[Rfam]
RNA sequence: CGGCGGGGACGACCCCGGCCAUGACGGCAUCAGCAUCUCGGGACGGCCCGC
Number, nucleotide and partner (000 for none) at each position: 001c000002g019003g000004c017005g016006g015007g014008g013009a000010c000011g000012a000013c008014c007015c006016c005017g004018g000019c002020c000021a000022u000023g000024a000025c000026g000027g000028c000029a000030u000031c000032a000033g000034c000035a000036u000037c000038u000039c050040g049041g048042g047043a000044c000045g000046g000047c042048c041049c040050g039051c000